Annotation: SAM/SAH riboswitch aptamer: a 49-nucleotide sequence from Sagittula salina. Its family is annotated with regulation of gene expression and S-adenosylmethionine metabolic process in the Gene Ontology.

Nucleotides: 049
Base pairs, nucleotide, nucleotide: 004031005030006029007028008027009026010025013022014021015048016047017046019045020044
Number, partner (000 for none) and nucleotide at each position: 001000c002000a003000c004031c005030c006029g007028u008027c009026a010025c011000a012000a013022c014021g015048g016047c017046u018000u019045c020044c021014u022013g023000g024000c025010g026009u027008g028007a029006u030005g031004g032000c033000a034000g035000a036000g037000a038000c039000a040000u041000a042000a043000u044020g045019g046017a047016g048015c049000a
For this family Rfam cites "The structure of the SAM/SAH-binding riboswitch" (Weickhmann et al., Nucleic Acids Res, 2019).
The family's consensus secondary structure is taken from published work.
NCBI's taxonomy places the organism under Bacteria, Pseudomonadota, Alphaproteobacteria, Roseobacteraceae, Sagittula.